[Rfam]
RNA sequence: UUUAUAUUUUAUAUAUAAAAUAAAGGUAAAGUAAAGAAAAGAAAGACCACUAAAUCGAAAUAAAGGAGCAAUAACCACUUUCUUGUUCUAGCAAGAGUGUUGGUAUUGCUCCUUU
Numbered sequence: 001u002u003u004a005u006a007u008u009u010u011a012u013a014u015a016u017a018a019a020a021u022a023a024a025g026g027u028a029a030a031g032u033a034a035a036g037a038a039a040a041g042a043a044a045g046a047c048c049a050c051u052a053a054a055u056c057g058a059a060a061u062a063a064a065g066g067a068g069c070a071a072u073a074a075c076c077a078c079u080u081u082c083u084u085g086u087u088c089u090a091g092c093a094a095g096a097g098u099g100u101u102g103g104u105a106u107u108g109c110u111c112c113u114u115u
Stems, first nucleotide, its partner, number of pairs: 003015005062115012077100002080097005
This 115-nucleotide sequence from Gossypium laxum belongs to the Rfam family "Plastid-psbA-1 3UTR RNA". The match comes from Rfam's covariance-model search (56 bits). Rfam's curators write: Plastid psbA-1 is a non-coding RNA (ncRNA) present in plastids. It was identified in inverted repeat sequences in the 3 prime untranslate region (3UTR) of photosystem II quinone-binding protein (psbA). Clan: Plastid-psbA 3UTR RNA clan. Rfam classes the family as a cis-regulatory element.